[Rfam]
Nucleotides: 084
Base pairs, nucleotide, nucleotide: 001084002083003082004081005080006079012072013071014070015069016068017067018066019065020064029055030054031053032052033051
Number, partner (000 for none) and nucleotide at each position: 001084u002083c003082g004081c005080a006079g007000a008000c009000g010000u011000c012072c013071g014070g015069g016068u017067u018066u019065c020064g021000a022000g023000a024000c025000a026000u027000g028000c029055g030054a031053g032052c033051c034000g035000u036000g037000c038000c039000u040000u041000u042000u043000a044000a045000a046000c047000g048000c049000u050000g051033g052032g053031u054030u055029c056000g057000u058000u059000g060000u061000c062000g063000a064020c065019g066018a067017a068016a069015c070014c071013u072012g073000c074000a075000c076000g077000a078000u079006u080005u081004g082003u083002g084001a

Shown here is an 84-nucleotide RNA from Neodiprion lecontei, a member of the family "mir-981 microRNA precursor family". The match comes from Rfam's covariance-model search (73 bits). The source organism's lineage runs through Eukaryota, Arthropoda, Endopterygota, Diprioninae and Neodiprion. The literature on the family includes a 2007 paper in Genome Res by Ruby et al., "Evolution, biogenesis, expression, and target predictions of a substantially expanded set of Drosophila microRNAs".